[Rfam]
RNA sequence: AAUAUAGAUGGGUAUGGUGCACACCCGAAACCGUUUCAAUUGAAACUAAUGGCGCCUACAAUGCA
Numbered sequence: 001a002a003u004a005u006a007g008a009u010g011g012g013u014a015u016g017g018u019g020c021a022c023a024c025c026c027g028a029a030a031c032c033g034u035u036u037c038a039a040u041u042g043a044a045a046c047u048a049a050u051g052g053c054g055c056c057u058a059c060a061a062u063g064c065a
Stems, first nucleotide, its partner, number of pairs: 010026004016056005033046004
The record is a 65-nucleotide RNA sequence from Lactovum miscens, which matches "Fluoride riboswitch aptamer (crcB RNA motif)" in Rfam. Pairs were carried over by alignment from the consensus structure, which is taken from published work. A search with the family's covariance model found it, with a score of 40 bits. The source organism's lineage runs through Bacteria, Bacillota, Bacilli, Streptococcaceae and Lactovum.